[Rfam]
RNA sequence: CAUUCCAGUGCCUCUAUGAUGUCAUCCCAGUGCUUGACACUGGGAUCCAGCUUUUUCAUAAUCAUCAAAAUGUUGUAUUUUUACAUAAAAUAGCUACUUUUAUGCUUACCAACUUAAUAAAAUUCCUGGAUCCCAGUGUCUGGGCACUGGGAUGACACCCCACUGGUGGGAAUU
Number, nucleotide and partner (000 for none) at each position: 001c000002a000003u000004u000005c000006c000007a000008g000009u000010g000011c169012c168013u000014c166015u165016a000017u000018g000019a000020u157021g156022u155023c154024a153025u152026c151027c150028c149029a148030g147031u146032g145033c144034u143035u142036g140037a139038c138039a137040c136041u135042g134043g133044g132045a131046u130047c129048c128049a127050g126051c000052u000053u000054u000055u000056u000057c000058a000059u000060a000061a000062u000063c000064a000065u000066c000067a000068a000069a000070a000071u000072g000073u000074u000075g000076u000077a000078u000079u000080u000081u000082u000083a000084c000085a000086u000087a000088a000089a000090a000091u000092a000093g000094c000095u000096a000097c000098u000099u000100u000101u000102a000103u000104g000105c000106u000107u000108a000109c000110c000111a000112a000113c000114u000115u000116a000117a000118u000119a000120a000121a000122a000123u000124u000125c000126c050127u049128g048129g047130a046131u045132c044133c043134c042135a041136g040137u039138g038139u037140c036141u000142g035143g034144g033145c032146a031147c030148u029149g028150g027151g026152a025153u024154g023155a022156c021157a020158c000159c000160c000161c000162a000163c000164u000165g015166g014167u000168g012169g011170g000171a000172a000173u000174u000

Annotation: A member of the RNA family "Wolbachia sRNA 46" from Trichonephila clavata, 174 nucleotides long. The organism belongs to Trichonephila, within Eukaryota. By type it is a small RNA. The base pairs follow the family's consensus structure. It scores 65 bits against the family's covariance model.